The record is a 175-nucleotide RNA sequence from Paraclostridium benzoelyticum, which matches "Lysine riboswitch aptamer" in Rfam. Rfam's curators write: Riboswitches are metabolite binding domains within certain messenger RNAs that serve as precision sensors for their corresponding targets. It scores 118 bits against the family's covariance model.
Nucleotides: 175
Stems, first nucleotide, its partner, number of pairs: 007169005016078006023071002032063007082113003086109007114140002117137008143159006
Number, partner (000 for none) and nucleotide at each position: 001000a002000a003000a004000a005000a006000a007169g008168g009167u010166a011165g012000a013000g014000g015000c016078g017077c018076g019075g020074u021073a022000c023071u024070u025000a026000u027000a028000a029000g030000u031000a032063c033062u034061a035060g036059u037058g038057a039000u040000g041000a042000g043000u044000u045000a046000a047000g048000c049000a050000c051000a052000u053000a054000g055000a056000u057038u058037u059036a060035c061034u062033a063032g064000g065000a066000a067000a068000g069000g070024a071023a072000u073021u074020a075019u076018c077017g078016c079000c080000g081000a082113a083112g084111u085000u086109u087108a088107u089106a090105a091104c092103u093000g094000a095000u096000g097000c098000u099000u100000u101000a102000a103092g104091g105090u106089u107088a108087u109086a110000u111084g112083c113082u114140g115139g116000g117137g118136a119135u120134g121133u122132a123131u124130a125000a126000a127000a128000u129000a130124u131123a132122u133121a134120c135119a136118u137117c138000a139115c140114u141000g142000u143159c144158a145157c146156a147155a148154a149000u150000u151000a152000u153000a154148u155147u156146u157145g158144u159143g160000u161000u162000g163000a164000g165011c166010u167009a168008u169007c170000a171000u172000u173000u174000a175000a